[Rfam]
RNA sequence: ACACUGGAAGGAGGUGGUCUGAGACAUGAAGUCUUCUUGGACGCGUGAGGUGACUGCCCGCUAGUCGCCCGAGUACUCGGACGGAUUGCUGAUCCGCCCGCAGGCUCCGCCGGACCUCCGGCAGGGCGGCGAGCGAAUACCCGGCAGUCACCGCAGCCCGUGGGAGCCGCGAUCUCGUCCAUCGCGGCAGGGCCCCGUCGAGGGGCCCAGCCCACGGGCUGUUUCCU
Numbered sequence: 001a002c003a004c005u006g007g008a009a010g011g012a013g014g015u016g017g018u019c020u021g022a023g024a025c026a027u028g029a030a031g032u033c034u035u036c037u038u039g040g041a042c043g044c045g046u047g048a049g050g051u052g053a054c055u056g057c058c059c060g061c062u063a064g065u066c067g068c069c070c071g072a073g074u075a076c077u078c079g080g081a082c083g084g085a086u087u088g089c090u091g092a093u094c095c096g097c098c099c100g101c102a103g104g105c106u107c108c109g110c111c112g113g114a115c116c117u118c119c120g121g122c123a124g125g126g127c128g129g130c131g132a133g134c135g136a137a138u139a140c141c142c143g144g145c146a147g148u149c150a151c152c153g154c155a156g157c158c159c160g161u162g163g164g165a166g167c168c169g170c171g172a173u174c175u176c177g178u179c180c181a182u183c184g185c186g187g188c189a190g191g192g193c194c195c196c197g198u199c200g201a202g203g204g205g206c207c208c209a210g211c212c213c214a215c216g217g218g219c220u221g222u223u224u225c226c227u
Stems, first nucleotide, its partner, number of pairs: 013058006059135004064130002067127004154221011168186006
RNA: Actinobacteria sRNA Ms_IGR-5
Organism: Cellulomonas sp. PhB150